A member of the RNA family "cspA thermoregulator" from Erwinia tasmaniensis, 471 nucleotides long. Its family is annotated with response to temperature stimulus and regulation of translation in the Gene Ontology. A search with the family's covariance model found it, with a score of 206 bits. Rfam classes the family as an RNA thermoregulator.
RNA sequence: GUCGGUUUUGAUACAGACCCACGUAUGCGAGCAAUUUUAGUAAAGCAGUCUUCAGUUCAAGCGUUAGCCUAAGCUUCUUCCUGACUUCCUUCUUGAGUGCCUCAUAGUAAUCCCUGUUGACGAACCCUGUGCCCCCGUGGCUUACUACAAUAUUGAAGGAAAGACUUAUGUCUAACAAAAUGACUGGUUUGGUAAAAUGGUUCAACGCUGAGAAAGGUUUCGGCUUCAUCUCCCCAACCGACGGUAGCAAAGACGUUUUCGUACACUUCUCUGCAAUUCAGAACGGCGGCUUCAAGACGCUGGAAGAAGGCCAGAAAGUUGAGUUCACUAUCGAAAACGGCCAGAAAGGCCCAGCAGCAGCUAACGUAACUGCGCUGUAAGAUAGAAACUCCUUCGUUGUUACCGUCAUGAGUUAAUCUCUGACGGUAUGAUACGAAAACGAAAAGCCCGCCUUAUGGCGGGCUUUUUGCG
Numbered sequence: 001g002u003c004g005g006u007u008u009u010g011a012u013a014c015a016g017a018c019c020c021a022c023g024u025a026u027g028c029g030a031g032c033a034a035u036u037u038u039a040g041u042a043a044a045g046c047a048g049u050c051u052u053c054a055g056u057u058c059a060a061g062c063g064u065u066a067g068c069c070u071a072a073g074c075u076u077c078u079u080c081c082u083g084a085c086u087u088c089c090u091u092c093u094u095g096a097g098u099g100c101c102u103c104a105u106a107g108u109a110a111u112c113c114c115u116g117u118u119g120a121c122g123a124a125c126c127c128u129g130u131g132c133c134c135c136c137g138u139g140g141c142u143u144a145c146u147a148c149a150a151u152a153u154u155g156a157a158g159g160a161a162a163g164a165c166u167u168a169u170g171u172c173u174a175a176c177a178a179a180a181u182g183a184c185u186g187g188u189u190u191g192g193u194a195a196a197a198u199g200g201u202u203c204a205a206c207g208c209u210g211a212g213a214a215a216g217g218u219u220u221c222g223g224c225u226u227c228a229u230c231u232c233c234c235c236a237a238c239c240g241a242c243g244g245u246a247g248c249a250a251a252g253a254c255g256u257u258u259u260c261g262u263a264c265a266c267u268u269c270u271c272u273g274c275a276a277u278u279c280a281g282a283a284c285g286g287c288g289g290c291u292u293c294a295a296g297a298c299g300c301u302g303g304a305a306g307a308a309g310g311c312c313a314g315a316a317a318g319u320u321g322a323g324u325u326c327a328c329u330a331u332c333g334a335a336a337a338c339g340g341c342c343a344g345a346a347a348g349g350c351c352c353a354g355c356a357g358c359a360g361c362u363a364a365c366g367u368a369a370c371u372g373c374g375c376u377g378u379a380a381g382a383u384a385g386a387a388a389c390u391c392c393u394u395c396g397u398u399g400u401u402a403c404c405g406u407c408a409u410g411a412g413u414u415a416a417u418c419u420c421u422g423a424c425g426g427u428a429u430g431a432u433a434c435g436a437a438a439a440c441g442a443a444a445a446g447c448c449c450g451c452c453u454u455a456u457g458g459c460g461g462g463c464u465u466u467u468u469g470c471g
Stems, first nucleotide, its partner, number of pairs: 004019005026236002029233001031231001045226001047225004052217002056215002064211003068207001070205001071202001073201003080170001082168003088159005098119002131141003172187003239333003243329002252260002265319004270315004274310001277304005285298001287296001339352002354378004358372003362368001441468012